tpke11: a 77-nucleotide RNA sequence from Arsenophonus endosymbiont of Aleurodicus dispersus.
The family's RNA type in Rfam is small RNA.
It scores 57 bits against the family's covariance model.
The literature on the family includes a 2001 paper in Curr Biol by Rivas et al., "Computational identification of noncoding RNAs in E. coli by comparative genomics".
Nucleotides: 077
Base pairs, nucleotide, nucleotide: 004017005016019050020049021048022047023046024045025044026043027042030039031038032037
Number, partner (000 for none) and nucleotide at each position: 001000c002000u003000c004017u005016g006000u007000u008000a009000c010000u011000a012000a013000a014000a015000u016005c017004g018000a019050g020049a021048a022047c023046g024045g025044g026043c027042g028000u029000u030039g031038a032037g033000g034000u035000a036000a037032c038031u039030c040000u041000a042027c043026g044025c045024c046023c047022g048021u049020u050019u051000c052000c053000g054000u055000g056000u057000a058000u059000u060000a061000a062000g063000g064000g065000u066000a067000a068000a069000a070000u071000a072000a073000a074000u075000a076000u077000g